[Rfam]
RNA: Actinobacteria sRNA Ms_IGR-5
Organism: Beutenbergia cavernae
RNA sequence: ACACGGGAAGGAGGUGGUCCAGGAACAUGAAGUCUUUCCGGACGCGUGAGGUGGCUGCCCGCUAGGCGGUGCAACCCAGGACGGUGAGCCGUCGCUGGGCCAUCCGGCCGAGCGAAUGUCAGGCAGUCACCGGAACCCGCGGGAGUCGUGCACUCGUCCAGCACGACGGUCGAUCAUCGAUCGGCGGCCCGCGGGUUCUUUCCU
Numbered sequence: 001a002c003a004c005g006g007g008a009a010g011g012a013g014g015u016g017g018u019c020c021a022g023g024a025a026c027a028u029g030a031a032g033u034c035u036u037u038c039c040g041g042a043c044g045c046g047u048g049a050g051g052u053g054g055c056u057g058c059c060c061g062c063u064a065g066g067c068g069g070u071g072c073a074a075c076c077c078a079g080g081a082c083g084g085u086g087a088g089c090c091g092u093c094g095c096u097g098g099g100c101c102a103u104c105c106g107g108c109c110g111a112g113c114g115a116a117u118g119u120c121a122g123g124c125a126g127u128c129a130c131c132g133g134a135a136c137c138c139g140c141g142g143g144a145g146u147c148g149u150g151c152a153c154u155c156g157u158c159c160a161g162c163a164c165g166a167c168g169g170u171c172g173a174u175c176a177u178c179g180a181u182c183g184g185c186g187g188c189c190c191g192c193g194g195g196u197u198c199u200u201u202c203c204u
Base pairs, nucleotide, nucleotide: 013059014058015057016056017055018054060114061113062112063111065109066108068104069103070102071101075099076098077097132199133198134197135196136195137194138193139192140191141190142189143188146166147165148164149163150162151161